[Rfam]
RNA sequence: GAAUACCACUAGGGGAGCCCUGAAAGCGGGGCUGAGAGAAGGAAGCGCAUUUCCUUGACCCUUGGAACCUGAUUGGCGUGCGGCGGUCGCAUGCUUCUGGAUGAUACCAGCGUAGGGAAGUGGACGAAUGUAAAC
Number, nucleotide and partner (000 for none) at each position: 001g000002a000003a000004u000005a000006c123007c122008a121009c120010u119011a062012g061013g060014g059015g000016a056017g032018c031019c030020c029021u028022g000023a000024a000025a000026g000027c000028g021029g020030g019031g018032c017033u000034g000035a000036g000037a000038g000039a000040a055041g054042g053043a052044a051045g050046c000047g000048c000049a000050u045051u044052u043053c042054c041055u040056u016057g000058a000059c014060c013061c012062u011063u000064g000065g000066a000067a000068c116069c115070u114071g113072a000073u000074u109075g108076g107077c000078g000079u000080g000081c000082g000083g000084c000085g000086g000087u000088c000089g000090c000091a000092u000093g000094c000095u000096u000097c000098u000099g000100g000101a000102u000103g000104a000105u000106a000107c076108c075109a074110g000111c000112g000113u071114a070115g069116g068117g000118a000119a010120g009121u008122g007123g006124a000125c000126g000127a000128a000129u000130g000131u000132a000133a000134a000135c000
TPP riboswitch aptamer (THI element): a 135-nucleotide RNA from Paenibacillus piri.
Gene Ontology term of the family: thiamine pyrophosphate binding.
NCBI's taxonomy places the organism under Bacteria, Bacilli, Caryophanales, Paenibacillaceae, Paenibacillus.